Rfam assigns this 127-nucleotide sequence to the family "RT-12 RNA".
By type it is a small RNA.
It is one of the family's seed sequences.
RNA sequence: UAACACACGCGGUUCGCCGCCAGGCUAAUGGCCUGCUGGCAAGAAGGUGGAUUAAAUGCCACUCAGGUAAGCCGGAAGGGGACACAAUGAGAUGACCGCAGUCUCGUGCCCCUUCCGGUUUGGCUAG
Number, nucleotide and partner (000 for none) at each position: 001u000002a000003a000004c000005a000006c000007a000008c000009g099010c098011g097012g096013u095014u000015c000016g040017c039018c038019g037020c000021c035022a034023g033024g032025c031026u000027a000028a000029u000030g000031g025032c024033c023034u022035g021036c000037u019038g018039g017040c016041a000042a000043g000044a000045a000046g000047g062048u061049g060050g059051a000052u000053u000054a000055a000056a000057u000058g000059c050060c049061a048062c047063u127064c000065a125066g124067g000068u122069a121070a000071g000072c118073c117074g116075g115076a114077a113078g112079g111080g110081g109082a000083c000084a000085c000086a000087a000088u000089g105090a104091g103092a102093u101094g000095a013096c012097c011098g010099c009100a000101g093102u092103c091104u090105c089106g000107u000108g000109c081110c080111c079112c078113u077114u076115c075116c074117g073118g072119u000120u000121u069122g068123g000124c066125u065126a000127g063